[Rfam]
RNA sequence: AAUCCAUCGAGACCGGCAGAGGGACAGGCCCUUUGAAGCCGGGGCAACCGUCGCAGUCACUGCCUGCGCAAGGUGCCAAUUCCUGCGGUGAUUCGAGGCGAUGUCCGCAUCCCUCGUUCGCCGGAAGAUGGUCG
Numbered sequence: 001a002a003u004c005c006a007u008c009g010a011g012a013c014c015g016g017c018a019g020a021g022g023g024a025c026a027g028g029c030c031c032u033u034u035g036a037a038g039c040c041g042g043g044g045c046a047a048c049c050g051u052c053g054c055a056g057u058c059a060c061u062g063c064c065u066g067c068g069c070a071a072g073g074u075g076c077c078a079a080u081u082c083c084u085g086c087g088g089u090g091a092u093u094c095g096a097g098g099c100g101a102u103g104u105c106c107g108c109a110u111c112c113c114u115c116g117u118u119c120g121c122c123g124g125a126a127g128a129u130g131g132u133c134g
Base pairs, nucleotide, nucleotide: 004131005130006129007128008127013042014041015040016039017038021031022030023029025085026084027083028082043077044076045075046074048073049072052068053067054066055065056064081126086123087122088121089120090119091118
A member of the RNA family "SAM riboswitch aptamer (S box leader)" from Marilutibacter penaei, 134 nucleotides long. The match comes from Rfam's covariance-model search (73 bits). NCBI's taxonomy places the organism under Bacteria, Pseudomonadota, Gammaproteobacteria, Lysobacteraceae, Marilutibacter.